[Rfam]
RNA sequence: UUGCAUCCACUGAUAGACCUGAAGCAGGUGUCAUUGGCUUCUGGGUUUGCAUAGAGAUGCUAAACUGAGUUUCCUUGGUGCUUUCUGACUGCUACAACCCAUAACAGCACAGUGUGAACUGGGGAAUACAUGA
Numbered sequence: 001u002u003g004c005a006u007c008c009a010c011u012g013a014u015a016g017a018c019c020u021g022a023a024g025c026a027g028g029u030g031u032c033a034u035u036g037g038c039u040u041c042u043g044g045g046u047u048u049g050c051a052u053a054g055a056g057a058u059g060c061u062a063a064a065c066u067g068a069g070u071u072u073c074c075u076u077g078g079u080g081c082u083u084u085c086u087g088a089c090u091g092c093u094a095c096a097a098c099c100c101a102u103a104a105c106a107g108c109a110c111a112g113u114g115u116g117a118a119c120u121g122g123g124g125a126a127u128a129c130a131u132g133a
Base pairs, nucleotide, nucleotide: 003060004059005058006057007056011051012050014049015048016047017046018045019044022040023039024038025037027035028034072125073124074123075122076121077120081116085112086111087110089107090106091105093103
Overview
The record is a 133-nucleotide RNA from Channa argus, which matches "Small nucleolar RNA SNORA31" in Rfam. Rfam describes the family as follows. ACA31 (SNORA31) belongs to the H/ACA class of snoRNAs which are thought to guide the sites of modification of uridines to pseudouridines. ACA31 is predicted to guide the pseudouridylation of U3713 in 28S rRNA and U218 in 18S rRNA. This family includes the mouse homologue snoMBI-161. On this family, see Huttenhofer et al., EMBO J 2001: "RNomics: an experimental approach that identifies 201 candidates for novel, small, non-messenger RNAs in mouse". Its family is annotated with nucleolus and RNA processing in the Gene Ontology.